This 91-nucleotide RNA sequence from Lentzea aerocolonigenes belongs to the Rfam family "Glycine riboswitch aptamer". The organism belongs to Lentzea, within Bacteria. The match comes from Rfam's covariance-model search (43 bits).
RNA sequence: CAACUCUGGAAAGCAGGCUCGUCACGAGCCUCGCCCACGGUGCAAGUCGCGCUCUGCGCGGCGAAGCUCUCAGGCUCAUGACAGAGGGGGA
Numbered sequence: 001c002a003a004c005u006c007u008g009g010a011a012a013g014c015a016g017g018c019u020c021g022u023c024a025c026g027a028g029c030c031u032c033g034c035c036c037a038c039g040g041u042g043c044a045a046g047u048c049g050c051g052c053u054c055u056g057c058g059c060g061g062c063g064a065a066g067c068u069c070u071c072a073g074g075c076u077c078a079u080g081a082c083a084g085a086g087g088g089g090g091a
Stems, first nucleotide, its partner, number of pairs: 001089001004086005015031004033075003037070001040069001042067001046062005
Clan: Glycine riboswitch clan.